[Rfam]
RNA sequence: CGGGUCGGCCGGACGGUCGCGUGGCGGGAGACCGCACCGAGGAACGUCCGGGCUCCACAGGGCAGGGCGGUGGGUAACACCCACCCGGAGCAAUCCGCGAGACAGUGCCACAGAGAGCAGACCGCCGAUGCUCAGCCCGGCUGGGCAUCGGUAAGGGUGAAAGGGUGGUGUAAGAGACCACCGGGGGCCGUGGUGACGCGGCCCGCCAGGUAAACCUCGCCCGGAGCAAGGUCAGACAGGGGAUGACGACGCGGCUCGCCGAGUCCCCGGGUAGACCGCUGGAGCGGCACGGCAACGUGUCGCCGAGAGAGAUGACCGUCGAGGGGGCGCGAGCCCCGGAACAGAACCCGGCGUACAGGCCGGCCCGUUCG
Numbered sequence: 001c002g003g004g005u006c007g008g009c010c011g012g013a014c015g016g017u018c019g020c021g022u023g024g025c026g027g028g029a030g031a032c033c034g035c036a037c038c039g040a041g042g043a044a045c046g047u048c049c050g051g052g053c054u055c056c057a058c059a060g061g062g063c064a065g066g067g068c069g070g071u072g073g074g075u076a077a078c079a080c081c082c083a084c085c086c087g088g089a090g091c092a093a094u095c096c097g098c099g100a101g102a103c104a105g106u107g108c109c110a111c112a113g114a115g116a117g118c119a120g121a122c123c124g125c126c127g128a129u130g131c132u133c134a135g136c137c138c139g140g141c142u143g144g145g146c147a148u149c150g151g152u153a154a155g156g157g158u159g160a161a162a163g164g165g166u167g168g169u170g171u172a173a174g175a176g177a178c179c180a181c182c183g184g185g186g187g188c189c190g191u192g193g194u195g196a197c198g199c200g201g202c203c204c205g206c207c208a209g210g211u212a213a214a215c216c217u218c219g220c221c222c223g224g225a226g227c228a229a230g231g232u233c234a235g236a237c238a239g240g241g242g243a244u245g246a247c248g249a250c251g252c253g254g255c256u257c258g259c260c261g262a263g264u265c266c267c268c269g270g271g272u273a274g275a276c277c278g279c280u281g282g283a284g285c286g287g288c289a290c291g292g293c294a295a296c297g298u299g300u301c302g303c304c305g306a307g308a309g310a311g312a313u314g315a316c317c318g319u320c321g322a323g324g325g326g327g328c329g330c331g332a333g334c335c336c337c338g339g340a341a342c343a344g345a346a347c348c349c350g351g352c353g354u355a356c357a358g359g360c361c362g363g364c365c366c367g368u369u370c371g
Stems, first nucleotide, its partner, number of pairs: 001367010011356001012320007020039002024035004044354003048351005053226004060257004065222005070084005085099001086097004100217002105215002107211003122156002124152012164182006184206001185204008230277004239268006251259002284303008
Bacterial RNase P class A: a 371-nucleotide RNA sequence from Microbacterium pseudoresistens.
Taxonomically the source falls in Microbacterium (Bacteria, Actinomycetota, Actinomycetes, Microbacteriaceae).
A search with the family's covariance model found it, with a score of 267 bits.
It is annotated as a ribozyme.
Rfam's curators write: Ribonuclease P (RNase P) is a ubiquitous endoribonuclease, found in archaea, bacteria and eukarya as well as chloroplasts and mitochondria.